[Rfam]
Shown here is a 66-nucleotide RNA from Hydrotalea sandarakina, a member of the family "Fluoride riboswitch aptamer (crcB RNA motif)".
RNA sequence: UUAACACUAGGUGAUGGCGUUUCACCCAUAACUGCCAAUUAAUUGGAUAAUGACGCCUGUAUAGCG
Numbered sequence: 001u002u003a004a005c006a007c008u009a010g011g012u013g014a015u016g017g018c019g020u021u022u023c024a025c026c027c028a029u030a031a032c033u034g035c036c037a038a039u040u041a042a043u044u045g046g047a048u049a050a051u052g053a054c055g056c057c058u059g060u061a062u063a064g065c066g
Stems, first nucleotide, its partner, number of pairs: 010026004016057006035046003
The literature on the family includes a 2012 paper in Science by Baker et al., "Widespread genetic switches and toxicity resistance proteins for fluoride". A search with the family's covariance model found it, with a score of 48 bits.